[Rfam]
RNA sequence: AGAUAGGGGGUGUUGGAUCCCGGGAAACUGGCAGCUGGGCAGCGUAAGCACGGGUGUGUGAACCCCACACCGACGUAUCACCCCCCUUGGACU
Number, nucleotide and partner (000 for none) at each position: 001a000002g000003a000004u000005a088006g087007g086008g085009g084010g083011u000012g082013u000014u080015g079016g078017a000018u000019c031020c030021c000022g028023g000024g000025a000026a000027a000028c022029u000030g020031g019032c000033a000034g043035c042036u041037g000038g000039g000040c000041a036042g035043c034044g000045u000046a000047a000048g076049c075050a000051c000052g000053g071054g070055u069056g068057u067058g066059u000060g000061a000062a000063c000064c000065c000066c058067a057068c056069a055070c054071c053072g000073a000074c000075g049076u048077a000078u016079c015080a014081c000082c012083c010084c009085c008086c007087u006088u005089g000090g000091a000092c000093u000
Rfam assigns this 93-nucleotide RNA from Umbravirus arachidis to the family "Luteovirus cap-independent translation element (BTE)". Pairs were carried over by alignment from the consensus structure, which is taken from published work. The match comes from Rfam's covariance-model search (48 bits). Gene Ontology terms of the family: translational initiation and translation initiation factor binding. Taxonomically the source falls in Umbravirus arachidis (Viruses, Riboviria, Orthornavirae, Calvusvirinae).